Rfam assigns this 102-nucleotide RNA from Geosporobacter ferrireducens to the family "Purine riboswitch aptamer". Taxonomically the source falls in Geosporobacter (Bacteria, Bacillati, Bacillota, Peptostreptococcales).

RNA sequence: CAUCUAAAAAUAAAUAGGGUUCAUAUAAUCGCAGAGAUAUGGUCUGCAAGUUUCUACCGGACUACCGUAAAUGGUCUGACUAUGAGCAAGCGAACACCGAAG
Numbered sequence: 001c002a003u004c005u006a007a008a009a010a011u012a013a014a015u016a017g018g019g020u021u022c023a024u025a026u027a028a029u030c031g032c033a034g035a036g037a038u039a040u041g042g043u044c045u046g047c048a049a050g051u052u053u054c055u056a057c058c059g060g061a062c063u064a065c066c067g068u069a070a071a072u073g074g075u076c077u078g079a080c081u082a083u084g085a086g087c088a089a090g091c092g093a094a095c096a097c098c099g100a101a102g
Base pairs, nucleotide, nucleotide: 019087020086021085022084023083024082025081029049031047032046033045034044035043058078059077060076061075062074063073064072